[Rfam]
RNA sequence: GCAGGAAGCCUGUGAUGCCCUAGCCAUGAUGUCUGAACCUGGCUGAAGGACUCUUCUGAAGAUGAACCUUUAGGCUCUGAGGCUUCCAGGGGA
Numbered sequence: 001g002c003a004g005g006a007a008g009c010c011u012g013u014g015a016u017g018c019c020c021u022a023g024c025c026a027u028g029a030u031g032u033c034u035g036a037a038c039c040u041g042g043c044u045g046a047a048g049g050a051c052u053c054u055u056c057u058g059a060a061g062a063u064g065a066a067c068c069u070u071u072a073g074g075c076u077c078u079g080a081g082g083c084u085u086c087c088a089g090g091g092g093a
Base pairs, nucleotide, nucleotide: 004087005086006085007084008083009082010081
RNA: Small nucleolar RNA SNORD91 family
Organism: Penelope pileata